[Rfam]
RNA sequence: UUGUCGCGGGCAAGUCUCCUACGACCAGCUCCCGAUGACUCCCCCAGGUUGGGAACAAAGCAAGGGUAUUUGGUUGAGCGGUGCGAUAGGAGUAGCUUGCCCUUUU
Number, nucleotide and partner (000 for none) at each position: 001u000002u000003g000004u000005c000006g000007c000008g102009g101010g100011c099012a098013a097014g096015u095016c000017u091018c090019c089020u088021a087022c085023g084024a082025c081026c000027a000028g000029c000030u000031c000032c000033c000034g000035a000036u000037g000038a000039c000040u000041c000042c000043c000044c000045c000046a000047g000048g000049u000050u000051g000052g000053g000054a000055a000056c000057a000058a000059a000060g000061c000062a000063a000064g000065g000066g000067u000068a000069u000070u000071u000072g000073g000074u000075u000076g000077a000078g000079c000080g000081g025082u024083g000084c023085g022086a000087u021088a020089g019090g018091a017092g000093u000094a000095g015096c014097u013098u012099g011100c010101c009102c008103u000104u000105u000106u000
Rfam assigns this 106-nucleotide sequence from Sphingobacterium deserti to the family "Bacteroidales small SRP". Taxonomically the source falls in Sphingobacterium (Bacteria, Bacteroidota, Sphingobacteriia, Sphingobacteriaceae). On this family, see Ryan et al., Nat Commun 2020: "A high-resolution transcriptome map identifies small RNA regulation of metabolism in the gut microbe Bacteroides thetaiotaomicron". The family's consensus secondary structure is taken from published work. Rfam classes the family as a non-coding RNA gene.